Rfam assigns this 171-nucleotide RNA sequence from Kyrpidia spormannii to the family "Group II catalytic intron D1-D4-3".
RNA sequence: UCCAUCGUGAGGUGGGAUCCGAAGGAAGCUGGAGGCAAACCCACGGCCCGAUGAACAAGAACCUCAUACGAGGCUACGCCGUUCGGAUGAGCUGGCAAGACACAGCGAAAUCCAAAGGCUGCCAAAGGGCGGCGGAGUAUAUGAGGCGGGCGCGGGGGGAAGGUCAACGCU
Numbered sequence: 001u002c003c004a005u006c007g008u009g010a011g012g013u014g015g016g017a018u019c020c021g022a023a024g025g026a027a028g029c030u031g032g033a034g035g036c037a038a039a040c041c042c043a044c045g046g047c048c049c050g051a052u053g054a055a056c057a058a059g060a061a062c063c064u065c066a067u068a069c070g071a072g073g074c075u076a077c078g079c080c081g082u083u084c085g086g087a088u089g090a091g092c093u094g095g096c097a098a099g100a101c102a103c104a105g106c107g108a109a110a111u112c113c114a115a116a117g118g119c120u121g122c123c124a125a126a127g128g129g130c131g132g133c134g135g136a137g138u139a140u141a142u143g144a145g146g147c148g149g150g151c152g153c154g155g156g157g158g159g160a161a162g163g164u165c166a167a168c169g170c171u
Base pairs, nucleotide, nucleotide: 001016002015003014004013005012006011028171030169031168035164036163040158041157042156044154045153046151047150048149049148050147062146063145064144065143066142067141073138074137075136077134078133079132080131081130082129083128085113086112087111088110091106092105093104094103

Source information:
Group II introns are found in rRNA, tRNA and mRNA of organelles in fungi, plants and protists, and also in mRNA in bacteria.